A member of the RNA family "c-di-AMP riboswitch aptamer (ydaO/yuaA leader)" from Alkalicoccobacillus porphyridii, 162 nucleotides long. Taxonomically the source falls in Alkalicoccobacillus (Bacteria, Bacillota, Bacilli, Caryophanales). A search with the family's covariance model found it, with a score of 85 bits. Rfam's curators write: This family represents a conserved RNA structure found upstream of the ydaO and yuaA genes in Bacillus subtilis and related genes in other bacteria.
RNA sequence: CACGAAACAGCGCAGAAUAUUUCUUUGGAAAUAACGGAGGAACCAUAAAUGGCUGCUCAUGCUGCCUGGGGUUAAUUGCUUACCGUUUAUGAUGAAGGCAACGGGCACACUCUCAAGCCCGAACCCGACAGCUAACUUCGUAUGCGUGUUGAGGGAGAUAAA
Number, nucleotide and partner (000 for none) at each position: 001c000002a000003c000004g000005a000006a000007a000008c000009a000010g000011c146012g145013c144014a143015g000016a000017a000018u033019a032020u031021u030022u029023c000024u000025u000026u000027g000028g000029a022030a021031a020032u019033a018034a141035c140036g139037g138038a137039g136040g000041a000042a000043c000044c068045a067046u000047a000048a000049a000050u000051g000052g000053c000054u000055g000056c000057u000058c000059a000060u000061g000062c000063u000064g000065c000066c000067u045068g044069g126070g125071g124072u000073u000074a000075a000076u000077u100078g099079c098080u097081u000082a000083c000084c000085g000086u000087u000088u000089a000090u000091g000092a000093u000094g000095a000096a000097g080098g079099c078100a077101a000102c000103g120104g119105g118106c117107a000108c000109a000110c000111u000112c000113u000114c000115a000116a000117g106118c105119c104120c103121g000122a000123a000124c071125c070126c069127g000128a000129c000130a000131g000132c000133u000134a000135a000136c039137u038138u037139c036140g035141u034142a000143u014144g013145c012146g011147u000148g000149u000150u000151g000152a000153g000154g000155g000156a000157g000158a000159u000160a000161a000162a000